[Rfam]
Glm Y RNA activator of glmS mRNA: a 157-nucleotide sequence from Candidatus Erwinia dacicola.
RNA sequence: AGUGGCUCAUUCACUUGGUUAUAAAAGCCCUGCGCAAGCGGCGGGCUCAUAACAUCCAGAAUGACGCACGAUACGGUGCCUGCCGUCCGCCCCACCGAUAAUCGUUCACCCUGACGUUAUCAAGCAUCGGACGUAACGUUGAGUUAGGCACCACCCU
Numbered sequence: 001a002g003u004g005g006c007u008c009a010u011u012c013a014c015u016u017g018g019u020u021a022u023a024a025a026a027g028c029c030c031u032g033c034g035c036a037a038g039c040g041g042c043g044g045g046c047u048c049a050u051a052a053c054a055u056c057c058a059g060a061a062u063g064a065c066g067c068a069c070g071a072u073a074c075g076g077u078g079c080c081u082g083c084c085g086u087c088c089g090c091c092c093c094a095c096c097g098a099u100a101a102u103c104g105u106u107c108a109c110c111c112u113g114a115c116g117u118u119a120u121c122a123a124g125c126a127u128c129g130g131a132c133g134u135a136a137c138g139u140u141g142a143g144u145u146a147g148g149c150a151c152c153a154c155c156c157u
Base pairs, nucleotide, nucleotide: 005067006066007064008063009062010061011060012059019052020051021050022049024047027046028045075152076151077150078149079148080147081146084133085132086131087130088129097121098120099119100118101117135145136144137143
Lineage of the source: Bacteria > Pseudomonadati > Pseudomonadota > Erwiniaceae > Erwinia. On this family, see Reichenbach et al., Nucleic Acids Res 2008: "The small RNA GlmY acts upstream of the sRNA GlmZ in the activation of glmS expression and is subject to regulation by polyadenylation in Escherichia coli". The family's RNA type in Rfam is small RNA. The family's consensus secondary structure is taken from published work.